[Rfam]
RNA sequence: ACAUUGUGAUGAGGACAUUGUCACUAAAGAUCCUUAAAUCUCUCCCAGACUUCAUAUAACUCUUUAGGAUGUUGGGUAAAGGAAGUAAUGUCCUUUGUAAUCUU
Numbered sequence: 001a002c003a004u005u006g007u008g009a010u011g012a013g014g015a016c017a018u019u020g021u022c023a024c025u026a027a028a029g030a031u032c033c034u035u036a037a038a039u040c041u042c043u044c045c046c047a048g049a050c051u052u053c054a055u056a057u058a059a060c061u062c063u064u065u066a067g068g069a070u071g072u073u074g075g076g077u078a079a080a081g082g083a084a085g086u087a088a089u090g091u092c093c094u095u096u097g098u099a100a101u102c103u104u
Base pairs, nucleotide, nucleotide: 001104005099006098057071058070060068
The family of this 104-nucleotide RNA from Carnegiea gigantea is "Plant small nucleolar RNA R71". The family's RNA type in Rfam is C/D-box small nucleolar RNA. The match comes from Rfam's covariance-model search (51 bits). The base pairs follow the family's consensus structure, which was predicted with PFOLD. Taxonomically the source falls in Carnegiea (Eukaryota, Streptophytina, eudicotyledons, Echinocereeae).